[Rfam]
RNA sequence: GAGAUGGAGCCCGGCGUGUGCUCUUAUUGGUAGUGUGGCUACUAAUCUAUCAUAAGACACACGCGGCUCUAUCUC
Numbered sequence: 001g002a003g004a005u006g007g008a009g010c011c012c013g014g015c016g017u018g019u020g021c022u023c024u025u026a027u028u029g030g031u032a033g034u035g036u037g038g039c040u041a042c043u044a045a046u047c048u049a050u051c052a053u054a055a056g057a058c059a060c061a062c063g064c065g066g067c068u069c070u071a072u073c074u075c
Base pairs, nucleotide, nucleotide: 001075002074003073004072005071006070008068009067010066011065014064015063016062019059020058022057023056024055028052029051030050031049032048
RNA: mir-970 microRNA precursor family
Organism: Papilio machaon